RNA sequence: GACUACAGUCAGUUUUGCAGGAUUGCAUUCCAGCUUAUUUCAAAACGCUGUGCAAAUCCAUGCAAAACUGACUGUGGUU
Numbered sequence: 001g002a003c004u005a006c007a008g009u010c011a012g013u014u015u016u017g018c019a020g021g022a023u024u025g026c027a028u029u030c031c032a033g034c035u036u037a038u039u040u041c042a043a044a045a046c047g048c049u050g051u052g053c054a055a056a057u058c059c060a061u062g063c064a065a066a067a068c069u070g071a072c073u074g075u076g077g078u079u
Base pairs, nucleotide, nucleotide: 003077004076005075006074007073008072009071010070011069012068013067014066015065016064017063018062019061020059021058023055024054025053026052027051028050032049033048034047